A member of the RNA family "Small Cajal body specific RNA 4" from Fukomys damarensis, 129 nucleotides long.
About the family: scaRNAs are a specific class of small nuclear RNAs which localise to the Cajal bodies and guide the modification of RNA polymerase II transcribed spliceosomal RNAs U1, U2, U4, U5 and U12. ACA26 belongs to the H/ACA box class of guide RNAs as it has the predicted hairpin-hinge-hairpin-tail structure, conserved H/ACA-box motifs and is found associated with GAR1.
RNA sequence: ACUGGAGGACCAAGAAGGCGGAGUCUGAUGAAGCAAGACUUUGCUGAUACACUCCUCCUAGAGAACAGGGUUGGAGAGAGCAGCCCAGACUGCAGGGAGUCAUGGGGCUGACUGUACUACCCAACACUG
Numbered sequence: 001a002c003u004g005g006a007g008g009a010c011c012a013a014g015a016a017g018g019c020g021g022a023g024u025c026u027g028a029u030g031a032a033g034c035a036a037g038a039c040u041u042u043g044c045u046g047a048u049a050c051a052c053u054c055c056u057c058c059u060a061g062a063g064a065a066c067a068g069g070g071u072u073g074g075a076g077a078g079a080g081c082a083g084c085c086c087a088g089a090c091u092g093c094a095g096g097g098a099g100u101c102a103u104g105g106g107g108c109u110g111a112c113u114g115u116a117c118u119a120c121c122c123a124a125c126a127c128u129g
Base pairs, nucleotide, nucleotide: 002061003060004058005057006056007055008054009053017045018044019043021041022040023039024038025037026036068122069121070120071119079113080112081110082109083108084107085106086105091102092101

The literature on the family includes a 2002 paper in EMBO J by Darzacq et al., "Cajal body-specific small nuclear RNAs: a novel class of 2'-O-methylation and pseudouridylation guide RNAs". Taxonomically the source falls in Fukomys (Eukaryota, Metazoa, Euteleostomi, Amniota). Pairs were carried over by alignment from the consensus structure, which was predicted with RNAfold.